[Rfam]
RNA sequence: UCAAGGUAGUCGCCCGGUGAGUGGACUAUUGGGUCUGUCCAAGCGGUAUAUAGGAGAGUGGCCGGUUGUGCCGUGAUGUACAGUCCCCCUUCCUCAGUGUUGAAGAGCAAGCCUGUCCUUGGUCCUAGAGCUGAUGAGGGCAGCAUCCUUUAUAUUCCUAUAACUUCUCAGUCUCUAGACAAUUACUGAGGAGAAACCAUGCAGGGUGCAACA
Numbered sequence: 001u002c003a004a005g006g007u008a009g010u011c012g013c014c015c016g017g018u019g020a021g022u023g024g025a026c027u028a029u030u031g032g033g034u035c036u037g038u039c040c041a042a043g044c045g046g047u048a049u050a051u052a053g054g055a056g057a058g059u060g061g062c063c064g065g066u067u068g069u070g071c072c073g074u075g076a077u078g079u080a081c082a083g084u085c086c087c088c089c090u091u092c093c094u095c096a097g098u099g100u101u102g103a104a105g106a107g108c109a110a111g112c113c114u115g116u117c118c119u120u121g122g123u124c125c126u127a128g129a130g131c132u133g134a135u136g137a138g139g140g141c142a143g144c145a146u147c148c149u150u151u152a153u154a155u156u157c158c159u160a161u162a163a164c165u166u167c168u169c170a171g172u173c174u175c176u177a178g179a180c181a182a183u184u185a186c187u188g189a190g191g192a193g194a195a196a197c198c199a200u201g202c203a204g205g206g207u208g209c210a211a212c213a
Base pairs, nucleotide, nucleotide: 001103002102003101004100006098007097009039011037012036014032015031016030020027021026043095045093046092053086054085055084056081058079059078060077061074062073147205148204149203151201152200153199164193165192166191167190168189169188171180172179173178
Description: This 213-nucleotide RNA sequence belongs to the Rfam family "Small nucleolar RNA SNORA73 family". From the family's description: U17 (SNORA73A and SNORA73B) also known as E1 belongs to the H/ACA class of small nucleolar RNAs (snoRNAs). Vertebrate U17 is intron-encoded and ranges in length from 200-230 nucleotides, longer than most snoRNAs. On this family, see Enright et al., RNA 1996: "5'ETS rRNA processing facilitated by four small RNAs: U14, E3, U17, and U3". Its Rfam clan is "snR30-U17 clan". It is one of the family's seed sequences. Gene Ontology terms of the family: RNA processing and nucleolus.